This 94-nucleotide RNA sequence from Carnegiea gigantea belongs to the Rfam family "small nucleolar RNA snoR117".
Rfam links the family to the GO terms RNA processing and nucleolus.
The organism belongs to Carnegiea, within Eukaryota.
RNA sequence: GGCCUGUGAUUCUAACUGAAUUGUCCGUACCAUCUGAUAAUUCUCUCUAAUCUGAGAUUUCUUGAUGAUACCCUCUUGCGUUUUUAUGAGGCCA
Numbered sequence: 001g002g003c004c005u006g007u008g009a010u011u012c013u014a015a016c017u018g019a020a021u022u023g024u025c026c027g028u029a030c031c032a033u034c035u036g037a038u039a040a041u042u043c044u045c046u047c048u049a050a051u052c053u054g055a056g057a058u059u060u061c062u063u064g065a066u067g068a069u070a071c072c073c074u075c076u077u078g079c080g081u082u083u084u085u086a087u088g089a090g091g092c093c094a
Stems, first nucleotide, its partner, number of pairs: 001093004
The family's RNA type in Rfam is C/D-box small nucleolar RNA.